[Rfam]
RNA sequence: UGCCGGCUUUCCAUCAGCCGGGGUACUGAAGAGGCACACCAUCAUUGCCUGAAGUGCGGUCGGGUCAUUCCCUCCAAUCGAUGGCAGACAAAGCCGAAUGAUGCUCUGGCAGGGCAUCGUUCACAUUCGCGCCUUGAGCGUAUGCUAUC
Number, nucleotide and partner (000 for none) at each position: 001u023002g000003c021004c020005g019006g018007c017008u016009u000010u000011c000012c000013a000014u000015c000016a008017g007018c006019c005020g004021g003022g000023g001024u000025a000026c000027u000028g000029a000030a000031g000032a000033g049034g048035c047036a046037c000038a000039c000040c000041a000042u000043c000044a000045u000046u036047g035048c034049c033050u000051g000052a000053a000054g000055u000056g132057c131058g130059g000060u000061c000062g000063g000064g000065u000066c000067a000068u000069u000070c000071c000072c000073u000074c000075c000076a000077a000078u000079c000080g000081a000082u000083g095084g094085c000086a000087g000088a000089c000090a000091a000092a000093g000094c084095c083096g000097a000098a000099u000100g000101a000102u000103g115104c114105u113106c112107u000108g000109g000110c000111a000112g106113g105114g104115c103116a000117u000118c000119g000120u000121u000122c000123a000124c000125a000126u000127u000128c000129g000130c058131g057132c056133c000134u000135u000136g000137a000138g000139c000140g000141u000142a000143u000144g000145c000146u000147a000148u000149c000